Annotation: The family of this 135-nucleotide RNA sequence from Mandrillus leucophaeus is "Small nucleolar RNA SNORA48". It is annotated as an H/ACA-box small nucleolar RNA.
RNA sequence: GGGUUCUGAUGCGGGAAGAGUAGCUUCUAGUUGGUGGUGCCCACCUCACAUCAGCCAGAGACAAAGCAACCCCUUGUUUAUCCCUGCUUGACUUUUGGCCUGUGUCUAUGCCUGGUCCAUGCCUUGAUGGAAAGA
Numbered sequence: 001g002g003g004u005u006c007u008g009a010u011g012c013g014g015g016a017a018g019a020g021u022a023g024c025u026u027c028u029a030g031u032u033g034g035u036g037g038u039g040c041c042c043a044c045c046u047c048a049c050a051u052c053a054g055c056c057a058g059a060g061a062c063a064a065a066g067c068a069a070c071c072c073c074u075u076g077u078u079u080a081u082c083c084c085u086g087c088u089u090g091a092c093u094u095u096u097g098g099c100c101u102g103u104g105u106c107u108a109u110g111c112c113u114g115g116u117c118c119a120u121g122c123c124u125u126g127a128u129g130g131a132a133a134g135a
Base pairs, nucleotide, nucleotide: 002062004060005059006058007057008056013052014051018047019046020045023040024039026037027036075130078127079126080125090123092121096119097118098117100115101114102113104111105110
The match comes from Rfam's covariance-model search (100 bits). A reference for the family is Ofengand and Bakin (1997), "Mapping to nucleotide resolution of pseudouridine residues in large subunit ribosomal RNAs from representative eukaryotes, prokaryotes, archaebacteria, mitochondria and chloroplasts", J Mol Biol. The base pairs follow the family's consensus structure, which was predicted with RNAalifold. Rfam's curators write: The snoRNA ACA 48 has been identified to guide pseudouridylation of the residue U3797 in the 28S rRNA subunit. The organism belongs to Mandrillus, within Eukaryota. Rfam links the family to the GO terms RNA processing and nucleolus.